The family of this 134-nucleotide RNA from Chelydra serpentina is "Small nucleolar RNA SNORA43". The family has 21 seed sequences and 492 matches in Rfam 15.1. The family is grouped with related families in Rfam's "SNORA17 clan". It scores 101 bits against the family's covariance model. NCBI's taxonomy places the organism under Eukaryota, Deuterostomia, Tetrapoda, Americhelydia, Chelydra.
RNA sequence: CAUGCCCCUACAGGCGUUGCAGAUAUGGUUGCUAUGCCAUGUUUGUGUCAUCAGGUGGCAGAGUGGAAGAGGCUGUGUCUACGCUCAGUGCUCUGAAAUCAUGAGCACUCAGAAUGAUUAGCAGCCUGACAUUU
Numbered sequence: 001c002a003u004g005c006c007c008c009u010a011c012a013g014g015c016g017u018u019g020c021a022g023a024u025a026u027g028g029u030u031g032c033u034a035u036g037c038c039a040u041g042u043u044u045g046u047g048u049c050a051u052c053a054g055g056u057g058g059c060a061g062a063g064u065g066g067a068a069g070a071g072g073c074u075g076u077g078u079c080u081a082c083g084c085u086c087a088g089u090g091c092u093c094u095g096a097a098a099u100c101a102u103g104a105g106c107a108c109u110c111a112g113a114a115u116g117a118u119u120a121g122c123a124g125c126c127u128g129a130c131a132u133u134u
Stems, first nucleotide, its partner, number of pairs: 001057002003053002019046004071126003080116002084112002089107005